[Rfam]
Description
Shown here is a 422-nucleotide part of an RNA from Puccinia sorghi, a member of the family "Eukaryotic large subunit ribosomal RNA".
RNA sequence: AGACCUCAAAUCAGGUGGGACUACCCGCUGAACUUAAGCAUAUCAAUAAGCGGAGGAAAAGAAACUAACAAGGAUUCCCCCAGUAACGGCGAGUGAAGAGGGAAAAGCCCAAAUUUGUAAUCUGACUCUUUCAGAGUCCGAGUUGUAAUUUUGAGAACUGUUUUCAGUGCUGGACCAUGUAUAAGUCUGUUGAAAAGCAGCAUCAUUGAGGGUGAUAAUCCCGUUUAUGAUAUGGACUACCAGUGCAUUAUGAUACAGUCUCUAAGAGUCGAGUUGUUUGGGAAUGCAGCUCAAAGUGGGUGGUAAAUUCCAUCUAAGGCUAAAUAUAGGUGAGAGACCGAUAGCAAACAAGUACCGUGAGGGAAAGAUGAAAAGAACUUUGGAAAGAGAGUUAACAGUGCGUGAAAUUGUUAAAAGGGAAA
Numbered sequence: 001a002g003a004c005c006u007c008a009a010a011u012c013a014g015g016u017g018g019g020a021c022u023a024c025c026c027g028c029u030g031a032a033c034u035u036a037a038g039c040a041u042a043u044c045a046a047u048a049a050g051c052g053g054a055g056g057a058a059a060a061g062a063a064a065c066u067a068a069c070a071a072g073g074a075u076u077c078c079c080c081c082a083g084u085a086a087c088g089g090c091g092a093g094u095g096a097a098g099a100g101g102g103a104a105a106a107g108c109c110c111a112a113a114u115u116u117g118u119a120a121u122c123u124g125a126c127u128c129u130u131u132c133a134g135a136g137u138c139c140g141a142g143u144u145g146u147a148a149u150u151u152u153g154a155g156a157a158c159u160g161u162u163u164u165c166a167g168u169g170c171u172g173g174a175c176c177a178u179g180u181a182u183a184a185g186u187c188u189g190u191u192g193a194a195a196a197g198c199a200g201c202a203u204c205a206u207u208g209a210g211g212g213u214g215a216u217a218a219u220c221c222c223g224u225u226u227a228u229g230a231u232a233u234g235g236a237c238u239a240c241c242a243g244u245g246c247a248u249u250a251u252g253a254u255a256c257a258g259u260c261u262c263u264a265a266g267a268g269u270c271g272a273g274u275u276g277u278u279u280g281g282g283a284a285u286g287c288a289g290c291u292c293a294a295a296g297u298g299g300g301u302g303g304u305a306a307a308u309u310c311c312a313u314c315u316a317a318g319g320c321u322a323a324a325u326a327u328a329g330g331u332g333a334g335a336g337a338c339c340g341a342u343a344g345c346a347a348a349c350a351a352g353u354a355c356c357g358u359g360a361g362g363g364a365a366a367g368a369u370g371a372a373a374a375g376a377a378c379u380u381u382g383g384a385a386a387g388a389g390a391g392u393u394a395a396c397a398g399u400g401c402g403u404g405a406a407a408u409u410g411u412u413a414a415a416a417g418g419g420a421a422a
Stems, first nucleotide, its partner, number of pairs: 024055001025053005035042002065072002076103004086094002106321004112150004119143001121141002124138004155262002157259004162255001164253002167246007175235006185201001187200004204208001211221002271292007298315005355362002378389004
Pairs were carried over by alignment from the consensus structure, which is taken from published work. Rfam 15.1 lists 107,465 matches to the family in 2,616 species. The source organism's lineage runs through Eukaryota, Opisthokonta, Fungi, Dikarya and Puccinia. The match comes from Rfam's covariance-model search (3330 bits).